[Rfam]
Nucleotides: 084
Base pairs, nucleotide, nucleotide: 001033002032003031004030005029006028007027008024009023012022013021035077036076037075038074039073047071048070049069050068051067052066053065
Number, partner (000 for none) and nucleotide at each position: 001033g002032c003031g004030a005029g006028c007027g008024c009023c010000c011000a012022c013021g014000c015000u016000g017000u018000c019000u020000a021013c022012g023009g024008g025000g026000c027007c028006g029005u030004u031003c032002g033001c034000c035077g036076u037075c038074u039073g040000a041000g042000g043000g044000c045000u046000u047071g048070c049069c050068a051067u052066c053065c054000g055000c056000c057000c058000c059000g060000a061000c062000a063000c064000g065053g066052g067051a068050u069049g070048g071047c072000a073039c074038a075037g076036a077035c078000g079000a080000g081000a082000g083000g084000a

This 84-nucleotide RNA from Parolsenella catena belongs to the Rfam family "aspS RNA". The match comes from Rfam's covariance-model search (61 bits). The organism belongs to Parolsenella, within Bacteria. The family's consensus secondary structure is taken from published work.